[Rfam]
RNA: Vault RNA
Organism: Liparis tanakae
RNA sequence: GCACUGGUCUAGCUCACUGGUUACUUCGAGCACUUCUCUUCGGAGGGACUGACUCUGGUUCCUCACCGGGAUCGAACCUCGGGCGCUGUCCAGUGUUUUA
Numbered sequence: 001g002c003a004c005u006g007g008u009c010u011a012g013c014u015c016a017c018u019g020g021u022u023a024c025u026u027c028g029a030g031c032a033c034u035u036c037u038c039u040u041c042g043g044a045g046g047g048a049c050u051g052a053c054u055c056u057g058g059u060u061c062c063u064c065a066c067c068g069g070g071a072u073c074g075a076a077c078c079u080c081g082g083g084c085g086c087u088g089u090c091c092a093g094u095g096u097u098u099u100a
Base pairs, nucleotide, nucleotide: 002095003094004093005092006091007090012084013083014082015081019078020077025076026075027074028073029072